[Rfam]
Bacterial large signal recognition particle RNA: a 264-nucleotide sequence from Gemella sp. GL1.1. Taxonomically the source falls in Gemella (Bacteria, Bacillati, Bacillota, Gemellaceae). Rfam links the family to the GO terms signal recognition particle, plasma membrane targeting and SRP-dependent cotranslational protein targeting to membrane, signal sequence recognition.

RNA sequence: GUAUGCUAGGUGGGGAGUUAGCGGUGCCCUGUACUUGCAAGCCGCUUUAGCAAGACUGAAUACCGAGAUUCGGGUAGUUAUUGUGAUGACGAGUUCAACACGUAGUGUUGAGAUUGAGGCAUCUUGUGACGUAAUGCUUAUGAACCAUGUCAGGUCAGGAAUGAAGCAGCAUUAAGUAAGUUUUUAUGGGUGCAAGUUUUUGUCAAGGUUGAGCUGUCGAUUGAACUAACGGUUGUGAAAAUUAUUCAACUCUCGGUUGCAUAU
Numbered sequence: 001g002u003a004u005g006c007u008a009g010g011u012g013g014g015g016a017g018u019u020a021g022c023g024g025u026g027c028c029c030u031g032u033a034c035u036u037g038c039a040a041g042c043c044g045c046u047u048u049a050g051c052a053a054g055a056c057u058g059a060a061u062a063c064c065g066a067g068a069u070u071c072g073g074g075u076a077g078u079u080a081u082u083g084u085g086a087u088g089a090c091g092a093g094u095u096c097a098a099c100a101c102g103u104a105g106u107g108u109u110g111a112g113a114u115u116g117a118g119g120c121a122u123c124u125u126g127u128g129a130c131g132u133a134a135u136g137c138u139u140a141u142g143a144a145c146c147a148u149g150u151c152a153g154g155u156c157a158g159g160a161a162u163g164a165a166g167c168a169g170c171a172u173u174a175a176g177u178a179a180g181u182u183u184u185u186a187u188g189g190g191u192g193c194a195a196g197u198u199u200u201u202g203u204c205a206a207g208g209u210u211g212a213g214c215u216g217u218c219g220a221u222u223g224a225a226c227u228a229a230c231g232g233u234u235g236u237g238a239a240a241a242u243u244a245u246u247c248a249a250c251u252c253u254c255g256g257u258u259g260c261a262u263a264u
Stems, first nucleotide, its partner, number of pairs: 001264006009057003012030004017025003034054005063256006072247005078241002081238007092227001094225005102218001104215003112210004118204003121198001123196004127190001130188005136181006147172004155164003
Dot-bracket structure: ((((((..(((((((.(((...))).))))...(((((...........)))))))).....((((((...(((((.((.(((((((....(.(((((...(.(((.....((((..((((.(((((..(((((.((((((.....((((....(((....)))....))))...))))))..))))).)..)))).)...)))..))))..)))..)..))))).)....))))))).)).)))))...))))))..))))))